[Rfam]
RNA: uup RNA
RNA sequence: GAAAAGUUCGCUCCGUGCAAUUGAACGCGAUGAAGCGUUGUACGGAGC
Dot-bracket structure: ..........(((((.(((...................))).))))).